[Rfam]
RNA sequence: AAGUAUUCAAUAGGGGCAACUUGAGAUCACAUGUUGUCAUUUUUCUUUUUUAGUUUGAUGAUUUGUAUCUCAAACAUGUGUUCUCAGGUCGCCCCUGUCGAAUUAUU
Number, nucleotide and partner (000 for none) at each position: 001a000002a000003g000004u000005a000006u000007u101008c100009a000010a000011u097012a096013g095014g094015g000016g092017c091018a000019a089020c000021u000022u000023g085024a084025g083026a082027u000028c080029a079030c078031a077032u076033g000034u000035u000036g000037u000038c000039a000040u000041u000042u000043u000044u000045c000046u000047u000048u000049u000050u000051u000052a000053g000054u000055u000056u000057g000058a000059u000060g000061a000062u000063u000064u000065g000066u000067a000068u000069c000070u000071c000072a000073a000074a000075c000076a032077u031078g030079u029080g028081u000082u026083c025084u024085c023086a000087g000088g000089u019090c000091g017092c016093c000094c014095c013096u012097g011098u000099c000100g008101a007102a000103u000104u000105a000106u000107u000

The family of this 107-nucleotide sequence from Solanum commersonii is "MIR398 microRNA precursor family". Rfam 15.1 lists 627 matches to the family in 211 species. Rfam links the family to the GO terms miRNA-mediated post-transcriptional gene silencing and RISC complex.